[Rfam]
RNA sequence: UGCGAUGAGUCGAGAAAAACCAGAUACCUUCGGGUGUUCACGCAAGUGCUAGUGGUUAUUCAAGGCCGGGACACGUUACCACCGUAUGUGGGUGUUUGUAAGGGGCGUUGUGGAACAA
Numbered sequence: 001u002g003c004g005a006u007g008a009g010u011c012g013a014g015a016a017a018a019a020c021c022a023g024a025u026a027c028c029u030u031c032g033g034g035u036g037u038u039c040a041c042g043c044a045a046g047u048g049c050u051a052g053u054g055g056u057u058a059u060u061c062a063a064g065g066c067c068g069g070g071a072c073a074c075g076u077u078a079c080c081a082c083c084g085u086a087u088g089u090g091g092g093u094g095u096u097u098g099u100a101a102g103g104g105g106c107g108u109u110g111u112g113g114a115a116c117a118a
Stems, first nucleotide, its partner, number of pairs: 018057005023038006039048003070096005079091004107116003
A member of the RNA family "Enterococcus sRNA 68 (Lacto-3 RNA)" from Periweissella cryptocerci, 118 nucleotides long. The family's consensus secondary structure is taken from published work. The match comes from Rfam's covariance-model search (74 bits). The literature on the family includes a 2015 paper in RNA by Innocenti et al., "Whole-genome mapping of 5' RNA ends in bacteria by tagged sequencing: a comprehensive view in Enterococcus faecalis". Rfam classes the family as a small RNA.